Rfam assigns this 126-nucleotide RNA sequence from Virgibacillus oceani to the family "Ribosomal protein L20 leader". This family is a putative r-protein leader autoregulatory structure found in B. subtilis and other low-GC Gram-positive bacteria. It is located in the 5' untranslated regions of mRNAs encoding initiation factor 3 followed by ribosomal proteins L35 and L20 (infC-rpmI-rplT). A Rho-independent transcription terminator structure that is probably involved in regulation is included at the 3' end. It is annotated as a cis-regulatory leader. The match comes from Rfam's covariance-model search (87 bits). Pairs were carried over by alignment from the consensus structure, which was predicted with CMfinder.

[Rfam]
RNA sequence: UGAGACAAGUAGAAGCACCCGCUUCUCACCUGAUCGACGCAUAAUGCAGUUGACUGGUUUUUUACUUCUUUAAUAGACUAUUGGAGACGUGUGGGUGCAUCUUUGUACCUACACUUUUUUAAUGAU
Numbered sequence: 001u002g003a004g005a006c007a008a009g010u011a012g013a014a015g016c017a018c019c020c021g022c023u024u025c026u027c028a029c030c031u032g033a034u035c036g037a038c039g040c041a042u043a044a045u046g047c048a049g050u051u052g053a054c055u056g057g058u059u060u061u062u063u064a065c066u067u068c069u070u071u072a073a074u075a076g077a078c079u080a081u082u083g084g085a086g087a088c089g090u091g092u093g094g095g096u097g098c099a100u101c102u103u104u105g106u107a108c109c110u111a112c113a114c115u116u117u118u119u120u121a122a123u124g125a126u
Base pairs, nucleotide, nucleotide: 011026012025013024014023015022016021028058029057030056036051037050038049039047040046090113091112092111093110094109095108096107097106098105099104